Rfam assigns this 138-nucleotide sequence from Microvirgula aerodenitrificans to the family "Manganese Mn2+ riboswitch aptamer (yybP-ykoY)".
About the family: This RNA was originally discovered in E. coli during a large scale screen and was named SraF. The family was later found to exist upstream of related families of protein genes in many bacteria, including the the yybP and ykoK genes in B. subtilis.
Taxonomically the source falls in Microvirgula (Bacteria, Pseudomonadati, Pseudomonadota, Betaproteobacteria).
Rfam 15.1 lists 1,126 matches to the family in 1,062 species.
[Rfam]
RNA sequence: CACCCAGUCCUGGGGGAGUAGCCGGCCCGCGGCAGCACAGCGGGGGCGCGUGUCAACAGACUUGGCCGACAGGCCGUGGCACGCGACGGAAAGCACAGACUUUUCGCGGCAAGACCCAUGAUCGCCGUCCGCUCUCUU
Numbered sequence: 001c002a003c004c005c006a007g008u009c010c011u012g013g014g015g016g017a018g019u020a021g022c023c024g025g026c027c028c029g030c031g032g033c034a035g036c037a038c039a040g041c042g043g044g045g046g047c048g049c050g051u052g053u054c055a056a057c058a059g060a061c062u063u064g065g066c067c068g069a070c071a072g073g074c075c076g077u078g079g080c081a082c083g084c085g086a087c088g089g090a091a092a093g094c095a096c097a098g099a100c101u102u103u104u105c106g107c108g109g110c111a112a113g114a115c116c117c118a119u120g121a122u123c124g125c126c127g128u129c130c131g132c133u134c135u136c137u138u
Base pairs, nucleotide, nucleotide: 026044027043028042029041030040046087047085048084049083050082051081052080053079054078055077063076064075065074066073067072